[Rfam]
RNA sequence: AGGGAGGGCCUUUCAGGCAUCCUCUCCCAAAAAACUUCCAAGGGCUGGUCUUCGGACCGGCCCAUUUUUUUUUGGCCG
Numbered sequence: 001a002g003g004g005a006g007g008g009c010c011u012u013u014c015a016g017g018c019a020u021c022c023u024c025u026c027c028c029a030a031a032a033a034a035c036u037u038c039c040a041a042g043g044g045c046u047g048g049u050c051u052u053c054g055g056a057c058c059g060g061c062c063c064a065u066u067u068u069u070u071u072u073u074g075g076c077c078g
Stems, first nucleotide, its partner, number of pairs: 008018004042063009
RNA: Makes More Granules Regulator RNA (mmgR)